[Rfam]
Nucleotides: 120
Stems, first nucleotide, its partner, number of pairs: 011106006019056005025050001027049003033044004062087011088097002
Number, partner (000 for none) and nucleotide at each position: 001000a002000a003000a004000a005000g006000a007000a008000a009000u010000a011106c012105u013104c014103u015102c016101c017000g018000a019056g020055c021054c022053a023052g024000u025050u026000u027049g028048c029047c030000u031000a032000a033044g034043g035042c036041u037000g038000c039000a040000a041036a042035g043034c044033u045000a046000u047029g048028g049027c050025a051000c052023u053022u054021g055020g056019c057000c058000g059000c060000c061000a062087g063086g064085g065084u066083g067082c068081g069080g070079u071078g072077g073000g074000a075000a076000a077072c078071u079070g080069u081068u082067g083066u084065a085064c086063c087062u088097u089096c090000c091000a092000u093000u094000g095000u096089g097088a098000a099000a100000a101016g102015g103014g104013g105012a106011g107000u108000u109000g110000g111000a112000u113000c114000c115000g116000g117000u118000u119000a120000a
The family of this 120-nucleotide sequence from Pelotomaculum propionicicum is "Molybdenum/Tungsten riboswitch aptamer (Moco RNA motif)". Gene Ontology terms of the family: tungstate binding, molybdenum ion binding and regulation of gene expression. The organism belongs to Pelotomaculum, within Bacteria.